[Rfam]
RNA: Bacterial RNase P class A
Organism: Aggregatibacter segnis
RNA sequence: AGAGUUGGUCAGGCAAUCGCCGGUCUAUUGAAGCCUCUAACAUCGCGAAAGCGUAAACUGGGGGACAAGUAGGCGGGAGGAAAGUCCGGGCUACACAGGGCAGAGUGCCGGAUAACGUCCGGGAGGCGAGAGCCUACGACAAGUGCAGCAGAGAGCAAACCGCCGAUGGCCCGCAAGGGAUCAGGUAAGGGUGAAAGGGUGCGGUAAGAGCGCACCGUGCCGCCGGUAACGGUUGGUAGCAGGGUAAACUCCACUCGUAGCAAGACCAAAUAGGAAUCCAAUGAAUGGCCCGUUCAGGAUUCGGGUAGGUUGCUUGAGCGCAUGUGUAAAUAUGCGCCUAGAUGAAUGAUUGUCCAUGACAGAACCCGGCUUAUCGACCAACUCCCUUU
Numbered sequence: 001a002g003a004g005u006u007g008g009u010c011a012g013g014c015a016a017u018c019g020c021c022g023g024u025c026u027a028u029u030g031a032a033g034c035c036u037c038u039a040a041c042a043u044c045g046c047g048a049a050a051g052c053g054u055a056a057a058c059u060g061g062g063g064g065a066c067a068a069g070u071a072g073g074c075g076g077g078a079g080g081a082a083a084g085u086c087c088g089g090g091c092u093a094c095a096c097a098g099g100g101c102a103g104a105g106u107g108c109c110g111g112a113u114a115a116c117g118u119c120c121g122g123g124a125g126g127c128g129a130g131a132g133c134c135u136a137c138g139a140c141a142a143g144u145g146c147a148g149c150a151g152a153g154a155g156c157a158a159a160c161c162g163c164c165g166a167u168g169g170c171c172c173g174c175a176a177g178g179g180a181u182c183a184g185g186u187a188a189g190g191g192u193g194a195a196a197g198g199g200u201g202c203g204g205u206a207a208g209a210g211c212g213c214a215c216c217g218u219g220c221c222g223c224c225g226g227u228a229a230c231g232g233u234u235g236g237u238a239g240c241a242g243g244g245u246a247a248a249c250u251c252c253a254c255u256c257g258u259a260g261c262a263a264g265a266c267c268a269a270a271u272a273g274g275a276a277u278c279c280a281a282u283g284a285a286u287g288g289c290c291c292g293u294u295c296a297g298g299a300u301u302c303g304g305g306u307a308g309g310u311u312g313c314u315u316g317a318g319c320g321c322a323u324g325u326g327u328a329a330a331u332a333u334g335c336g337c338c339u340a341g342a343u344g345a346a347u348g349a350u351u352g353u354c355c356a357u358g359a360c361a362g363a364a365c366c367c368g369g370c371u372u373a374u375c376g377a378c379c380a381a382c383u384c385c386c387u388u389u
Base pairs, nucleotide, nucleotide: 002384003383004382005381006380007379008378009377010376011374012354013353014352015351016350017349018348020077021076023074024073025072026071027070028069082372083371084370086369087368088367089366090365091260092259093258094257098291099290100289101288103256104255105254106253107252108122109121110120111119112118123137124135125134126133127132138251139250143249144248145245146244160190161189162186163185164184167183168182169181170179171178172177198216199215200214201213202212203211217240218238219237220236221235222234223232224231225230264311265310266309267308274302275301276300277299278298279297282296283295284294285293286292318337319336320335321334322333323332324331325330